[Rfam]
RNA sequence: GCGAUGAGCUGAAUUGCAUAAGUCGAAGGACACGCCUCUUGGGGCAACGCGUGGAUGUGGCCACCCGGUUCUUCGCCGCAAUACGCACGAAGCCGCCUGCUUGCAGGCGGC
Numbered sequence: 001g002c003g004a005u006g007a008g009c010u011g012a013a014u015u016g017c018a019u020a021a022g023u024c025g026a027a028g029g030a031c032a033c034g035c036c037u038c039u040u041g042g043g044g045c046a047a048c049g050c051g052u053g054g055a056u057g058u059g060g061c062c063a064c065c066c067g068g069u070u071c072u073u074c075g076c077c078g079c080a081a082u083a084c085g086c087a088c089g090a091a092g093c094c095g096c097c098u099g100c101u102u103g104c105a106g107g108c109g110g111c
Stems, first nucleotide, its partner, number of pairs: 014081004024075008035042001048067002051064003092111008
Description: This 111-nucleotide sequence from Ectobacillus ponti belongs to the Rfam family "BsrF". Rfam classes the family as a small RNA. The literature on the family includes a 2008 paper in Gene by Saito et al., "Novel small RNA-encoding genes in the intergenic regions of Bacillus subtilis".